A member of the RNA family "MIR1520 microRNA precursor family" from Glycine soja, 120 nucleotides long.

RNA sequence: UUUUUAUUGGAUGAUGACCGUCACGUGUCAUGUUCUGAUUGAUCAAUGAAAACAAUAAUGUAUUUCAUCUUUCAUAGAGUUGACAUCCAAUCGAAACACGACAUAUGACACUCAUCAUUU
Dot-bracket structure: ...................((((.((..(.(.((.(.(((................................................))).).)).).)..)).))))...........